[Rfam]
RNA sequence: GUGUUGUCUUAAACAAGACAAAUUCAAUAUUUAUUAUCCUUUAAAAAAAGGCGCAGUUUUCUGCGCCUUUUUU
Numbered sequence: 001g002u003g004u005u006g007u008c009u010u011a012a013a014c015a016a017g018a019c020a021a022a023u024u025c026a027a028u029a030u031u032u033a034u035u036a037u038c039c040u041u042u043a044a045a046a047a048a049a050g051g052c053g054c055a056g057u058u059u060u061c062u063g064c065g066c067c068u069u070u071u072u073u
Stems, first nucleotide, its partner, number of pairs: 002020003006014002046071011